[Rfam]
Nucleotides: 202
Stems, first nucleotide, its partner, number of pairs: 003195004008036002011033002014030001041073003045069010077130001080127001082125005094107001096105001134149003151189006158183002162179004
Number, partner (000 for none) and nucleotide at each position: 001000u002000u003195a004194a005193g006192u007000u008036c009035u010000a011033c012032g013000g014030g015000g016000a017000a018000g019000c020000a021000a022000a023000a024000a025000a026000a027000c028000a029000g030014c031000g032012c033011g034000g035009g036008g037000u038000u039000a040000g041073c042072g043071u044000u045069g046068c047067c048066g049065g050064c051063a052062c053061g054060u055000g056000c057000a058000u059000g060054a061053c062052g063051u064050g065049c066048c067047g068046g069045c070000u071043g072042c073041g074000c075000g076000a077130u078000a079000g080127c081000g082125g083124c084123a085122u086121g087000c088000a089000c090000g091000a092000c093000g094107g095000g096105g097000c098000c099000a100000a101000c102000c103000a104000u105096c106000g107094u108000c109000g110000a111000a112000c113000g114000u115000c116000c117000a118000u119000c120000g121086c122085a123084u124083g125082c126000g127080g128000g129000c130077a131000g132000a133000c134149u135148u136147g137000c138000a139000g140000a141000c142000c143000a144000g145000c146000a147136c148135g149134a150000c151189u152188u153187g154186c155185c156184g157000u158183c159182c160000a161000a162179c163178c164177g165176g166000g167000g168000g169000a170000g171000c172000a173000g174000c175000a176165u177164c178163g179162g180000g181000c182159g183158g184156c185155g186154g187153u188152g189151g190000a191000c192006g193005u194004u195003u196000c197000u198000c199000g200000a201000u202000c